Shown here is an 86-nucleotide sequence from Actinomyces sp. HMT897, a member of the family "ZMP/ZTP riboswitch aptamer (pfl RNA motif)". The match comes from Rfam's covariance-model search (43 bits).
RNA sequence: GGUCCCGGCCGUGACUGGCGAGGGUGGGGCACCACCGGGGAGCGGCAGCCUGACCGGAGGGGACGUCGCCCGCCUGGGCGUCCCCG
Dot-bracket structure: .....(.(((((..(([[[[...((((....))))..))..))))).)..............(((((...]]]]..))))).....